[Rfam]
RNA: FMN riboswitch aptamer (RFN element)
Organism: Leptolinea tardivitalis
RNA sequence: AAUUUCCUUCGGGGCAGGGUGCGAGGUAACAACCUCAAUUCCCGAUCGGUGGUGAUAACCCACGAGCGCAGAACACCGCGCGCAUGACCUGGUGAAAUUCCAGGGUCGACGGUACAGUCCGGAUGCAAGAAGGAAACA
Numbered sequence: 001a002a003u004u005u006c007c008u009u010c011g012g013g014g015c016a017g018g019g020u021g022c023g024a025g026g027u028a029a030c031a032a033c034c035u036c037a038a039u040u041c042c043c044g045a046u047c048g049g050u051g052g053u054g055a056u057a058a059c060c061c062a063c064g065a066g067c068g069c070a071g072a073a074c075a076c077c078g079c080g081c082g083c084a085u086g087a088c089c090u091g092g093u094g095a096a097a098u099u100c101c102a103g104g105g106u107c108g109a110c111g112g113u114a115c116a117g118u119c120c121g122g123a124u125g126c127a128a129g130a131a132g133g134a135a136a137c138a
Stems, first nucleotide, its partner, number of pairs: 003136008017043003045118002047108002049063004058106002066083003088104005110121003